[Rfam]
RNA sequence: GGAAGAUCAUCCUCCCCCGUAGGGUGGCUAGACUUCAAAUCCAGAUGAGGCCGCCAGCGGUCCUUGGCAGGUUCGACUCCUGUGGUCUUCC
Numbered sequence: 001g002g003a004a005g006a007u008c009a010u011c012c013u014c015c016c017c018c019g020u021a022g023g024g025u026g027g028c029u030a031g032a033c034u035u036c037a038a039a040u041c042c043a044g045a046u047g048a049g050g051c052c053g054c055c056a057g058c059g060g061u062c063c064u065u066g067g068c069a070g071g072u073u074c075g076a077c078u079c080c081u082g083u084g085g086u087c088u089u090c091c
Base pairs, nucleotide, nucleotide: 001091002090003089004088005087006086007085008084009083011026013024014023015022028044029043031041032040047065048064049063050062051060068082069081070080071079
This 91-nucleotide RNA sequence from Arsenophonus endosymbiont of Bemisia tabaci belongs to the Rfam family "Selenocysteine transfer RNA". The family has 109 seed sequences and 4,211 matches in Rfam 15.1. The family's consensus secondary structure is taken from published work. Its family is annotated with triplet codon-amino acid adaptor activity in the Gene Ontology. The source organism's lineage runs through Bacteria, Pseudomonadati, Enterobacterales, Morganellaceae and Arsenophonus endosymbiont of Bemisia tabaci.